[Rfam]
RNA: Plastid-psbA-4 3UTR RNA
Organism: Gossypium armourianum
RNA sequence: GGAGCAAUAACCACUUUCUUGUUCUAGCAAGAGUGUUGGUAUUGCUCCUUUAU
Numbered sequence: 001g002g003a004g005c006a007a008u009a010a011c012c013a014c015u016u017u018c019u020u021g022u023u024c025u026a027g028c029a030a031g032a033g034u035g036u037u038g039g040u041a042u043u044g045c046u047c048c049u050u051u052a053u
Stems, first nucleotide, its partner, number of pairs: 001048009013036002016033006